[Rfam]
Nucleotides: 087
Base pairs, nucleotide, nucleotide: 006053007052008051009050010049011048012047013046014045016043017042018041019040020039021038022037023036024035025034026033
Number, partner (000 for none) and nucleotide at each position: 001000g002000a003000u004000c005000c006053g007052a008051u009050a010049g011048u012047a013046u014045g015000a016043u017042a018041g019040a020039a021038a022037g023036a024035u025034u026033c027000a028000u029000a030000u031000a032000g033026g034025a035024a036023u037022c038021u039020u040019u041018c042017u043016a044000c045014c046013a047012u048011a049010c050009u051008a052007u053006c054000u055000a056000u057000u058000u059000u060000g061000a062000u063000u064000a065000u066000u067000g068000u069000a070000a071000u072000g073000u074000a075000g076000a077000a078000a079000g080000a081000u082000a083000c084000a085000a086000a087000c
The record is an 87-nucleotide sequence from Xylocarpus moluccensis, which matches "Plastid-psbM 3UTR RNA" in Rfam. By type it is a cis-regulatory element. NCBI's taxonomy places the organism under Eukaryota, Euphyllophyta, Magnoliopsida, Pentapetalae, Xylocarpus. The literature on the family includes a 2023 paper in Plant Commun by Richter et al., "Retrograde signaling in plants: A critical review focusing on the GUN pathway and beyond". About the family: Plastid psbM is a non-coding RNA (ncRNA) recognised in plastids. It was found in the three prime untranslated region (3UTR) of psbM gene, its 3UTR location suggests a role in transcript maturation. Rfam 15.1 lists 627 matches to the family in 337 species.